RNA sequence: CAAUGUGCGAUAAAGUGCUUACAGUGCAGGUAGUGAUGCUAACAUGGCCUACUGCAGUGUAAGCACUUCUUUCCUACACUG
Number, nucleotide and partner (000 for none) at each position: 001c000002a000003a000004u078005g077006u076007g075008c000009g073010a072011u000012a000013a068014a067015g066016u065017g064018c063019u062020u061021a060022c059023a058024g000025u056026g055027c054028a000029g053030g052031u051032a050033g049034u000035g000036a000037u000038g000039c000040u000041a000042a000043c000044a000045u000046g000047g000048c000049c033050u032051a031052c030053u029054g027055c026056a025057g000058u023059g022060u021061a020062a019063g018064c017065a016066c015067u014068u013069c000070u000071u000072u010073c009074c000075u007076a006077c005078a004079c000080u000081g000
Notes:
Shown here is an 81-nucleotide RNA from Perca fluviatilis, a member of the family "mir-17 microRNA precursor family". From the family's description: This family represents the microRNA (miRNA) precursor mir-17, family, which includes mir-20, mir-91, and mir-103. miRNAs are transcribed as ~70nt precursors (modelled here) and subsequently processed by the Dicer enzyme to give a ~22nt product. In this case the mature sequence comes from the 3' arm of the precursor. The extents of the hairpin precursors are not generally known and are estimated based on hairpin prediction. The literature on the family includes a 2001 paper in Science by Lagos-Quintana et al., "Identification of novel genes coding for small expressed RNAs". Rfam links the family to the GO terms miRNA-mediated post-transcriptional gene silencing and RISC complex.